[Rfam]
RNA: Streptomyces sRNA 4677
RNA sequence: CGCUCCGGUGUCACGGGCGGCUUUCCCCCAAGGAACAACCGGGUGAAAGAAACCCGCCAAGCCCCACCCCUCCCGCCCGCGGCGCCGACUCACCCGCCAGGGUGAAUAUGCCCAACUCGGCUGGAUUUAGGGCGGCUUGCCUGCCUUACGCUCAGCGCAACACCACCGCAGACAUGCGACGGCCCUCGCCGGGAGUAGCGAUCCCGUGCGAGGGCCUGACCACCGAGGAAGGCACAAACUUCCUG
Number, nucleotide and partner (000 for none) at each position: 001c000002g000003c000004u000005c000006c000007g224008g223009u222010g221011u000012c000013a000014c000015g000016g077017g076018c075019g074020g000021c000022u000023u000024u000025c000026c000027c000028c000029c000030a000031a000032g000033g000034a000035a000036c000037a000038a000039c000040c000041g000042g000043g000044u000045g000046a000047a000048a000049g000050a000051a000052a000053c000054c000055c000056g000057c000058c000059a000060a000061g000062c000063c000064c000065c000066a000067c000068c000069c000070c000071u000072c000073c000074c019075g018076c017077c016078c000079g000080c000081g000082g000083c000084g000085c000086c000087g000088a000089c000090u105091c104092a103093c102094c101095c100096g000097c000098c000099a000100g095101g094102g093103u092104g091105a090106a000107u000108a000109u000110g000111c000112c000113c000114a000115a000116c000117u000118c000119g000120g156121c155122u154123g153124g152125a000126u000127u000128u000129a000130g000131g000132g000133c000134g000135g000136c000137u000138u000139g000140c000141c000142u000143g000144c000145c000146u000147u000148a000149c000150g000151c000152u124153c123154a122155g121156c120157g000158c000159a000160a000161c000162a000163c000164c000165a000166c000167c000168g000169c000170a000171g000172a000173c000174a000175u000176g000177c000178g000179a000180c000181g216182g215183c214184c213185c212186u000187c210188g209189c208190c000191g205192g204193g203194a202195g000196u000197a000198g000199c000200g000201a000202u194203c193204c192205c191206g000207u000208g189209c188210g187211a000212g185213g184214g183215c182216c181217u000218g000219a000220c000221c010222a009223c008224c007225g000226a000227g243228g242229a241230a240231g239232g000233c000234a000235c000236a000237a000238a000239c231240u230241u229242c228243c227244u000245g000